This 82-nucleotide RNA sequence from Leptotrombidium deliense belongs to the Rfam family "bantam microRNA precursor family". The source organism's lineage runs through Eukaryota, Bilateria, Acariformes, Trombiculidae and Leptotrombidium. Rfam 15.1 lists 182 matches to the family in 182 species. Its family is annotated with RISC complex and miRNA-mediated post-transcriptional gene silencing in the Gene Ontology. The base pairs follow the family's consensus structure, which was predicted with RNAalifold.
[Rfam]
RNA sequence: AAGGAUUAACACAACUGGUUUUCACAAUGGUUUUCCAGAUGGAUUUGAAAUCUGAGAUCAUUGUGAAAGCUGUUUCUGUUGU
Numbered sequence: 001a002a003g004g005a006u007u008a009a010c011a012c013a014a015c016u017g018g019u020u021u022u023c024a025c026a027a028u029g030g031u032u033u034u035c036c037a038g039a040u041g042g043a044u045u046u047g048a049a050a051u052c053u054g055a056g057a058u059c060a061u062u063g064u065g066a067a068a069g070c071u072g073u074u075u076c077u078g079u080u081g082u
Base pairs, nucleotide, nucleotide: 009079010078011077013075014074016072017071018070019069020068021067022066023065024064025063028060029059030058031057032056033055